This 119-nucleotide RNA sequence from Bacillus yapensis belongs to the Rfam family "BsrF".
RNA sequence: GCGAUGAGCUGAAUUGUGUAAGACGACUUGACGCGCCUUGAAAUAUAGGCAACACAAUGUGGAGUGUAGUCAUGUGCGCCUCAAUUUUUCGAACAAAAAGACCUCAAUUUUGAGGUCUU
Numbered sequence: 001g002c003g004a005u006g007a008g009c010u011g012a013a014u015u016g017u018g019u020a021a022g023a024c025g026a027c028u029u030g031a032c033g034c035g036c037c038u039u040g041a042a043a044u045a046u047a048g049g050c051a052a053c054a055c056a057a058u059g060u061g062g063a064g065u066g067u068a069g070u071c072a073u074g075u076g077c078g079c080c081u082c083a084a085u086u087u088u089u090c091g092a093a094c095a096a097a098a099a100g101a102c103c104u105c106a107a108u109u110u111u112g113a114g115g116u117c118u119u
Stems, first nucleotide, its partner, number of pairs: 014084003018080001024078002026075002029072004035050004052067001054065002098119009
It scores 51 bits against the family's covariance model. On this family, see Saito et al., Gene 2008: "Novel small RNA-encoding genes in the intergenic regions of Bacillus subtilis".